This 155-nucleotide sequence from Paeniglutamicibacter gangotriensis belongs to the Rfam family "c-di-AMP riboswitch aptamer (ydaO/yuaA leader)". The base pairs follow the family's consensus structure. This family represents a conserved RNA structure found upstream of the ydaO and yuaA genes in Bacillus subtilis and related genes in other bacteria. The match comes from Rfam's covariance-model search (53 bits).

RNA sequence: UCCGUUCAAUUACUCGUUUGGCAGUGGCGGGGGACCCACUUUCGGUUUCCACACUAGGAAGCCUUGGGGUUAAGCAGUGCGGCCUUACAGCCGGAUUGCCGAGUGACUCCCACUCGAACCCGACAGCUCACCCCGCAGGCAUCAGGAGAGGCAUC
Numbered sequence: 001u002c003c004g005u006u007c008a009a010u011u012a013c014u015c016g017u018u019u020g021g022c023a024g025u026g027g028c029g030g031g032g033g034a035c036c037c038a039c040u041u042u043c044g045g046u047u048u049c050c051a052c053a054c055u056a057g058g059a060a061g062c063c064u065u066g067g068g069g070u071u072a073a074g075c076a077g078u079g080c081g082g083c084c085u086u087a088c089a090g091c092c093g094g095a096u097u098g099c100c101g102a103g104u105g106a107c108u109c110c111c112a113c114u115c116g117a118a119c120c121c122g123a124c125a126g127c128u129c130a131c132c133c134c135g136c137a138g139g140c141a142u143c144a145g146g147a148g149a150g151g152c153a154u155c
Base pairs, nucleotide, nucleotide: 002024027136028135029134030133031132032131037066038065067121068120069119075098076097077096078095101115102114103113104112